[Rfam]
A member of the RNA family "c-di-AMP riboswitch aptamer (ydaO/yuaA leader)" from Nonomuraea pusilla, 151 nucleotides long. The source organism's lineage runs through Bacteria, Bacillati, Actinomycetota, Streptosporangiaceae and Nonomuraea.

RNA sequence: AGUCCCGACCAGCCUAAUCCGCGCAGCCGCUCUGCGCGGAGCCGGGGACCCACCGACCCCCUUGGGGCGAAUCGGCGCGCCGCGCGUGUCGUAGGGCUGCUUCCAGGCCCGAGCCCGUCAGCUAACCCGGCCGGCCACGUGGAAGGACAGA
Numbered sequence: 001a002g003u004c005c006c007g008a009c010c011a012g013c014c015u016a017a018u019c020c021g022c023g024c025a026g027c028c029g030c031u032c033u034g035c036g037c038g039g040a041g042c043c044g045g046g047g048a049c050c051c052a053c054c055g056a057c058c059c060c061c062u063u064g065g066g067g068c069g070a071a072u073c074g075g076c077g078c079g080c081c082g083c084g085c086g087u088g089u090c091g092u093a094g095g096g097c098u099g100c101u102u103c104c105a106g107g108c109c110c111g112a113g114c115c116c117g118u119c120a121g122c123u124a125a126c127c128c129g130g131c132c133g134g135c136c137a138c139g140u141g142g143a144a145g146g147a148c149a150g151a
Stems, first nucleotide, its partner, number of pairs: 012135003018040009041131006051064002065116003073091004094110004